[Rfam]
RNA sequence: CAUGAUGAAGAAAAUUCUUAUCGUAGUAGGAACGCACAUGGGCAAGGCGGCGUAGCCGCCGGGCGAGAGCCACUCAUGUGCGAAAGACAGGCUCCCACCGGGGGCCUUUUUUAUUGGCCAGAC
Numbered sequence: 001c002a003u004g005a006u007g008a009a010g011a012a013a014a015u016u017c018u019u020a021u022c023g024u025a026g027u028a029g030g031a032a033c034g035c036a037c038a039u040g041g042g043c044a045a046g047g048c049g050g051c052g053u054a055g056c057c058g059c060c061g062g063g064c065g066a067g068a069g070c071c072a073c074u075c076a077u078g079u080g081c082g083a084a085a086g087a088c089a090g091g092c093u094c095c096c097a098c099c100g101g102g103g104g105c106c107u108u109u110u111u112u113a114u115u116g117g118c119c120a121g122a123c
Stems, first nucleotide, its partner, number of pairs: 029119002033082010046060005063070002087108001089107007

About this RNA: A member of the RNA family "Rhizobiales sRNA Atu_C8" from Nitratireductor basaltis, 123 nucleotides long. It scores 102 bits against the family's covariance model. It is annotated as a small RNA. The organism belongs to Nitratireductor, within Bacteria. The family's consensus secondary structure was predicted with CMfinder.